[Rfam]
RNA sequence: CCGUAAAAUAAGCCGAAUCUCCAAAAGGAGUACGAGGAACAUUUUUUUGGGGUGAAUCUUAAUAUUAAGUAGGGGAUCCUCUACGCAAACUCGACAACUAACCUGGGAGGCAAUAUGGAGGGAAACA
Numbered sequence: 001c002c003g004u005a006a007a008a009u010a011a012g013c014c015g016a017a018u019c020u021c022c023a024a025a026a027g028g029a030g031u032a033c034g035a036g037g038a039a040c041a042u043u044u045u046u047u048u049g050g051g052g053u054g055a056a057u058c059u060u061a062a063u064a065u066u067a068a069g070u071a072g073g074g075g076a077u078c079c080u081c082u083a084c085g086c087a088a089a090c091u092c093g094a095c096a097a098c099u100a101a102c103c104u105g106g107g108a109g110g111c112a113a114u115a116u117g118g119a120g121g122g123a124a125a126c127a
Stems, first nucleotide, its partner, number of pairs: 012111003019030002033106001035104003040049002050092003058069004072086001074084001
RNA: c-di-AMP riboswitch aptamer (ydaO/yuaA leader)
Organism: Clostridium acetireducens